Shown here is a 262-nucleotide RNA sequence from Lachnoclostridium sp. An118, a member of the family "Bacterial large signal recognition particle RNA". The family's RNA type in Rfam is non-coding RNA gene. The source organism's lineage runs through Bacteria, Bacillati, Clostridia, Lachnospirales and Lachnoclostridium. It scores 188 bits against the family's covariance model. The base pairs follow the family's consensus structure, which is taken from published work. Rfam's curators write: The signal recognition particle (SRP) is a universally conserved ribonucleoprotein involved in the co-translational targeting of proteins to membranes.

[Rfam]
RNA sequence: UCGUGCAGCCGGGGCGGUAGCGGUGCCUUGUACCUGCAGUCCGCUAUAGCAGGGGUGAUAUUGCGCGGAGGGCGAAAGCUGGCAGAGCUGCCCUUGGUAAGUGACGUUGAUAUCCGGGUCUCACGCGACGGAAAUCCGCGAACCGUGUCAGGUCGGGAACGAAGCAGCACUAAACGGAACCUUCCGGGUGCCGUGAGGGUGCCUGGGUUGAGUAAACUGCCAAGGUAACGUCUGUUGGCCUGGUUCGAAGCGCAAUGCACGA
Numbered sequence: 001u002c003g004u005g006c007a008g009c010c011g012g013g014g015c016g017g018u019a020g021c022g023g024u025g026c027c028u029u030g031u032a033c034c035u036g037c038a039g040u041c042c043g044c045u046a047u048a049g050c051a052g053g054g055g056u057g058a059u060a061u062u063g064c065g066c067g068g069a070g071g072g073c074g075a076a077a078g079c080u081g082g083c084a085g086a087g088c089u090g091c092c093c094u095u096g097g098u099a100a101g102u103g104a105c106g107u108u109g110a111u112a113u114c115c116g117g118g119u120c121u122c123a124c125g126c127g128a129c130g131g132a133a134a135u136c137c138g139c140g141a142a143c144c145g146u147g148u149c150a151g152g153u154c155g156g157g158a159a160c161g162a163a164g165c166a167g168c169a170c171u172a173a174a175c176g177g178a179a180c181c182u183u184c185c186g187g188g189u190g191c192c193g194u195g196a197g198g199g200u201g202c203c204u205g206g207g208u209u210g211a212g213u214a215a216a217c218u219g220c221c222a223a224g225g226u227a228a229c230g231u232c233u234g235u236u237g238g239c240c241u242g243g244u245u246c247g248a249a250g251c252g253c254a255a256u257g258c259a260c261g262a
Base pairs, nucleotide, nucleotide: 001262002261003260004259005258006257007256008056009055010054011029012028013027014026015025016024018022033053034052035051036050037049061255062254063253064252065251066250070246071245072244073243076241078239079238080237081236082235083234084233085232089227090226093224094223095222096221097220098219101217102216104213105212112208113207114206115205116204117203118202119201120197121196122195123194124193125192126188129186130185131184132183133182135178136177137176138175145170146169147168148167153162154161155160